[Rfam]
Rfam assigns this 46-nucleotide RNA from Neorhodopirellula pilleata to the family "Acido-Lenti-1 RNA".
RNA sequence: CCCCAUGCUCACGCAUGGGGCUAAUUGCUAACGUCGCUCCGCGACU
Numbered sequence: 001c002c003c004c005a006u007g008c009u010c011a012c013g014c015a016u017g018g019g020g021c022u023a024a025u026u027g028c029u030a031a032c033g034u035c036g037c038u039c040c041g042c043g044a045c046u
Stems, first nucleotide, its partner, number of pairs: 001020008033045005
Record summary:
The match comes from Rfam's covariance-model search (48 bits). It is annotated as a small RNA.